[Rfam]
RNA sequence: AUACUUACCUGGCGUGGGGGACACCGUGUUCACGAAGGCGGUUCCCCCAGGGCGAGGCCCUUCCAUUGCACUGCGGUCGGGCUGACCCCUGCGAUUACCCCUAAUGCGGGUAACUCGGACGCGUAAUUUUUGGUAGUUAUUCGAAAAUUUUAC
Numbered sequence: 001a002u003a004c005u006u007a008c009c010u011g012g013c014g015u016g017g018g019g020g021a022c023a024c025c026g027u028g029u030u031c032a033c034g035a036a037g038g039c040g041g042u043u044c045c046c047c048c049a050g051g052g053c054g055a056g057g058c059c060c061u062u063c064c065a066u067u068g069c070a071c072u073g074c075g076g077u078c079g080g081g082c083u084g085a086c087c088c089c090u091g092c093g094a095u096u097a098c099c100c101c102u103a104a105u106g107c108g109g110g111u112a113a114c115u116c117g118g119a120c121g122c123g124u125a126a127u128u129u130u131u132g133g134u135a136g137u138u139a140u141u142c143g144a145a146a147a148u149u150u151u152a153c
Base pairs, nucleotide, nucleotide: 012122013121014120015119016048017047018046019045020044021043023042024041025040026039027038049090050089051088052087054086056083057082058081060079063076064075092117093116094115095113096112097111099109100108
Rfam assigns this 153-nucleotide sequence from Eumeta japonica to the family "U1 spliceosomal RNA". The base pairs follow the family's consensus structure, which is taken from published work. The literature on the family includes a 1997 paper in Nucleic Acids Res by Zwieb, "The uRNA database". The family's RNA type in Rfam is spliceosomal small nuclear RNA.